[Rfam]
Annotation
Rfam assigns this 109-nucleotide sequence from Albibacterium bauzanense to the family "SAM riboswitch aptamer (S box leader)".
Nucleotides: 109
Stems, first nucleotide, its partner, number of pairs: 002108006013043005021032003026075004044067004049063002051060003071101001076098004
Number, partner (000 for none) and nucleotide at each position: 001000u002108g003107c004106u005105u006104a007103u008000a009000g010000a011000g012000a013043a014042a015041g016040a017039c018000g019000g020000a021032g022031g023030g024000a025000u026075u027074a028073g029072a030023c031022c032021c033000u034000a035000c036000g037000a038000a039017g040016u041015c042014u043013u044067g045066g046065c047064a048000a049063c050062c051060u052059g053058u054000a055000c056000u057000u058053a059052c060051a061000a062050g063049g064047u065046g066045c067044u068000a069000c070000a071101u072029u073028c074027u075026a076098c077097c078096u079095g080000a081000a082000c083000g084000a085000g086000a087000a088000a089000u090000c091000a092000a093000a094000c095079c096078a097077g098076g099000a100000a101071a102000g103007a104006u105005a106004a107003g108002c109000u
Source information
The match comes from Rfam's covariance-model search (66 bits). The organism belongs to Albibacterium, within Bacteria. The base pairs follow the family's consensus structure, which is taken from published work.